[Rfam]
RNA sequence: ACUCUUUGAGGUGGAAGAUUUCGUACGAUCCACACGCCGUUGGUACUGACAGGGGAGACCCGAGAGAUGCAGGAGAAGCGUACGCCUGCCAAAGAGU
Numbered sequence: 001a002c003u004c005u006u007u008g009a010g011g012u013g014g015a016a017g018a019u020u021u022c023g024u025a026c027g028a029u030c031c032a033c034a035c036g037c038c039g040u041u042g043g044u045a046c047u048g049a050c051a052g053g054g055g056a057g058a059c060c061c062g063a064g065a066g067a068u069g070c071a072g073g074a075g076a077a078g079c080g081u082a083c084g085c086c087u088g089c090c091a092a093a094g095a096g097u
Stems, first nucleotide, its partner, number of pairs: 001097008011033005023083005035064001036044003069089005
Record summary
This 97-nucleotide sequence from Lachnospiraceae bacterium M18-1 belongs to the Rfam family "skipping-rope RNA". The sequence is in the family's curated seed alignment. By type it is a small RNA.